[Rfam]
The family of this 82-nucleotide RNA from Nocardia sp. SYP-A9097 is "Actinobacteria sRNA Ms_AS-4". NCBI's taxonomy places the organism under Bacteria, Bacillati, Actinomycetota, Mycobacteriales, Nocardia. It is annotated as a small RNA. On this family, see Li et al., RNA 2013: "Identification of small RNAs in Mycobacterium smegmatis using heterologous Hfq". A search with the family's covariance model found it, with a score of 78 bits. Rfam 15.1 lists 207 matches to the family in 131 species.
RNA sequence: CUUGGCAGUGGUGUAACGGUGGGGGUCGUCUCCGAACUCGGCGAGCACCCGGGCACCGAGGAUCUUGCCCAAUCCUGGCUGG
Numbered sequence: 001c002u003u004g005g006c007a008g009u010g011g012u013g014u015a016a017c018g019g020u021g022g023g024g025g026u027c028g029u030c031u032c033c034g035a036a037c038u039c040g041g042c043g044a045g046c047a048c049c050c051g052g053g054c055a056c057c058g059a060g061g062a063u064c065u066u067g068c069c070c071a072a073u074c075c076u077g078g079c080u081g082g
Base pairs, nucleotide, nucleotide: 009043010042012040013039018038019037020036023033024032025031056078057077059076060075061074062073063072